[Rfam]
This 237-nucleotide RNA belongs to the Rfam family "RT-7 RNA".
It is annotated as a small RNA.
The sequence is in the family's curated seed alignment.
Pairs were carried over by alignment from the consensus structure, which is taken from published work.
RNA sequence: UCGAGAGUAUUGCAAGUCCCGGUGCUUGCGGUAGGGUGAUAUGUAAAUUCAGCAAUCCACUGGCGGAGUAAUUUGCGUAUAAGGACUACGUGUUGUGCGGUUACGGCCGCCUACACCCCGAGCUACGUUUCCGUUAGUUAUCCACACCAGUCUGUAUGGGGACCGGGCGGCGUAUUCCGUUUGACAGGGAUAUAUCCGCUUCUUUCCGGUACAUUCAUUUCAGUGAUUGCUUUUUCC
Numbered sequence: 001u002c003g004a005g006a007g008u009a010u011u012g013c014a015a016g017u018c019c020c021g022g023u024g025c026u027u028g029c030g031g032u033a034g035g036g037u038g039a040u041a042u043g044u045a046a047a048u049u050c051a052g053c054a055a056u057c058c059a060c061u062g063g064c065g066g067a068g069u070a071a072u073u074u075g076c077g078u079a080u081a082a083g084g085a086c087u088a089c090g091u092g093u094u095g096u097g098c099g100g101u102u103a104c105g106g107c108c109g110c111c112u113a114c115a116c117c118c119c120g121a122g123c124u125a126c127g128u129u130u131c132c133g134u135u136a137g138u139u140a141u142c143c144a145c146a147c148c149a150g151u152c153u154g155u156a157u158g159g160g161g162a163c164c165g166g167g168c169g170g171c172g173u174a175u176u177c178c179g180u181u182u183g184a185c186a187g188g189g190a191u192a193u194a195u196c197c198g199c200u201u202c203u204u205u206c207c208g209g210u211a212c213a214u215u216c217a218u219u220u221c222a223g224u225g226a227u228u229g230c231u232u233u234u235u236c237c
Base pairs, nucleotide, nucleotide: 001039002038008033009032010031011030012029013028014027015026016025051231052230053229054228055227056226057225059138060137061136062135063134064133065132066131076127077126078125079124080122083119084118153213154212155211156210157209159207160206161205162204167199168198169197